[Rfam]
RNA sequence: GCACUUUGUGUGUGUUUUUGUUCAACUGGUGGACAAAGGCAGGAAAGACAAAGUGCAAAAAUAAAUCCUCUUUUGCAACCCAGAACUCAUUGUUCAGUAUGAGUCUUGAUACAUACAAGCAGGAACAUG
Numbered sequence: 001g002c003a004c005u006u007u008g009u010g011u012g013u014g015u016u017u018u019u020g021u022u023c024a025a026c027u028g029g030u031g032g033a034c035a036a037a038g039g040c041a042g043g044a045a046a047g048a049c050a051a052a053g054u055g056c057a058a059a060a061a062u063a064a065a066u067c068c069u070c071u072u073u074u075g076c077a078a079c080c081c082a083g084a085a086c087u088c089a090u091u092g093u094u095c096a097g098u099a100u101g102a103g104u105c106u107u108g109a110u111a112c113a114u115a116c117a118a119g120c121a122g123g124a125a126c127a128u129g
Base pairs, nucleotide, nucleotide: 001056002055003054004053005052006051007050008049009048011046014040015039016038017037018036019035020034021033026031066125068123069122072119073118074117075116081108082107083106085104086103087102088101089100090099
A member of the RNA family "Small nucleolar RNA SNORA40" from Nannospalax galili, 129 nucleotides long. It scores 119 bits against the family's covariance model. The family has 28 seed sequences and 2,550 matches in Rfam 15.1. A reference for the family is Ofengand and Bakin (1997), "Mapping to nucleotide resolution of pseudouridine residues in large subunit ribosomal RNAs from representative eukaryotes, prokaryotes, archaebacteria, mitochondria and chloroplasts", J Mol Biol. Rfam links the family to the GO terms RNA processing and nucleolus.